RNA sequence: CUCCACAGCUACUGGUCUGGAACUGUUCAGAAAUGUAGCAGUUACAGUAUUCCCUCUGUGGAAAAUAAACAGUUACACAGCGCUGAGCUCCUUCUCACAUGCUCUGGGAAGGACUUCCUCUGUAACAAACAGUG
Numbered sequence: 001c002u003c004c005a006c007a008g009c010u011a012c013u014g015g016u017c018u019g020g021a022a023c024u025g026u027u028c029a030g031a032a033a034u035g036u037a038g039c040a041g042u043u044a045c046a047g048u049a050u051u052c053c054c055u056c057u058g059u060g061g062a063a064a065a066u067a068a069a070c071a072g073u074u075a076c077a078c079a080g081c082g083c084u085g086a087g088c089u090c091c092u093u094c095u096c097a098c099a100u101g102c103u104c105u106g107g108g109a110a111g112g113a114c115u116u117c118c119u120c121u122g123u124a125a126c127a128a129a130c131a132g133u134g
Base pairs, nucleotide, nucleotide: 003061004060005059006058017047018046019045021043022042023041024040025039075123076122077121079119089113090112091111092110093109094108095107096106
Small nucleolar RNA SNORA41: a 134-nucleotide RNA from Urocolius indicus. Gene Ontology terms of the family: RNA processing and nucleolus. By type it is an H/ACA-box small nucleolar RNA.